Rfam assigns this 71-nucleotide sequence from Sus scrofa to the family "Small nucleolar RNA SNORD56". The match comes from Rfam's covariance-model search (73 bits). NCBI's taxonomy places the organism under Eukaryota, Deuterostomia, Craniata, Sarcopterygii, Sus. Its family is annotated with nucleolus and RNA processing in the Gene Ontology. It is annotated as a C/D-box small nucleolar RNA.
[Rfam]
RNA sequence: CUACAAUGAUGGCAAUAUUUUUCGACAACUGCAACUCACCUAGAGAGUGUUGGUGCUUCAGGUCUGAGUGA
Numbered sequence: 001c002u003a004c005a006a007u008g009a010u011g012g013c014a015a016u017a018u019u020u021u022u023c024g025a026c027a028a029c030u031g032c033a034a035c036u037c038a039c040c041u042a043g044a045g046a047g048u049g050u051u052g053g054u055g056c057u058u059c060a061g062g063u064c065u066g067a068g069u070g071a
Stems, first nucleotide, its partner, number of pairs: 002070003008026001010024002
Dot-bracket structure: .(((...(.((...........)).).........................................))).